[Rfam]
RNA sequence: AUAAUGAUACUUCCGUCCGGUCAUAACUCAUCGUAGUGAGGGCGGCUUCAUGAGAACCAUGUUGGGGUGAAAGACCCAUGA
Dot-bracket structure: ...........(((((((.....................))))))(...(((.....)))...)(((.......))))...
RNA: pemK RNA